This 132-nucleotide RNA sequence from Citrobacter rodentium belongs to the Rfam family "RtT RNA". Gene Ontology term of the family: cellular response to amino acid starvation. Lineage of the source: Bacteria > Pseudomonadati > Gammaproteobacteria > Enterobacterales > Citrobacter rodentium. Rfam describes the family as follows. This family represents a bacterial cis-regulatory element known as RtT RNA. The exact function of RtT is unknown although it is thought that it may be involved in changing the cellular response in relation to amino acid starvation. A reference for the family is Bosl and Kersten (1991), "A novel RNA product of the tyrT operon of Escherichia coli", Nucleic Acids Res. Pairs were carried over by alignment from the consensus structure, which is taken from published work.
RNA sequence: UUUUUUCACUUGUCGGGAAGGGUGAGAACCUUCGAUUAAGGUUCGACUCGAGCGAAAGCGAGAGAACGUUGCCAACGGCAACGGCCCGAAGGGUGAGGAGCGAAGCGACGAAUAAUCCUUCCCCCACCACCA
Dot-bracket structure: ..............(((((((.(.........((.((....((((...((........))......((((((.....))))))...)))).))))...................).))))))).........
Numbered sequence: 001u002u003u004u005u006u007c008a009c010u011u012g013u014c015g016g017g018a019a020g021g022g023u024g025a026g027a028a029c030c031u032u033c034g035a036u037u038a039a040g041g042u043u044c045g046a047c048u049c050g051a052g053c054g055a056a057a058g059c060g061a062g063a064g065a066a067c068g069u070u071g072c073c074a075a076c077g078g079c080a081a082c083g084g085c086c087c088g089a090a091g092g093g094u095g096a097g098g099a100g101c102g103a104a105g106c107g108a109c110g111a112a113u114a115a116u117c118c119u120u121c122c123c124c125c126a127c128c129a130c131c132a
Stems, first nucleotide, its partner, number of pairs: 015123007023115001033095002036093002042090004049060002067083006